[Rfam]
mir-2238 microRNA precursor family: an 87-nucleotide RNA sequence from Pristionchus pacificus. Gene Ontology terms of the family: miRNA-mediated post-transcriptional gene silencing and RISC complex. The family has 13 seed sequences and 22 matches in Rfam 15.1. The literature on the family includes a 2009 paper in Genome Res by de Wit et al., "Repertoire and evolution of miRNA genes in four divergent nematode species".

RNA sequence: GCAGUCAAUUCCCUUUUCGUUCGCUCCACAUGUCAAUCGUUGAUUCGAGUACGAAUGACAAGUGCAGAUGGCGAGAAGGUAGACUCC
Numbered sequence: 001g002c003a004g005u006c007a008a009u010u011c012c013c014u015u016u017u018c019g020u021u022c023g024c025u026c027c028a029c030a031u032g033u034c035a036a037u038c039g040u041u042g043a044u045u046c047g048a049g050u051a052c053g054a055a056u057g058a059c060a061a062g063u064g065c066a067g068a069u070g071g072c073g074a075g076a077a078g079g080u081a082g083a084c085u086c087c
Base pairs, nucleotide, nucleotide: 001087003085004084005083006082008080009079010078015076016075018073019072020071024067025066032059033058034057035056037054038053039052040051

Source information:
The source organism's lineage runs through Eukaryota, Protostomia, Ecdysozoa, Nematoda and Pristionchus.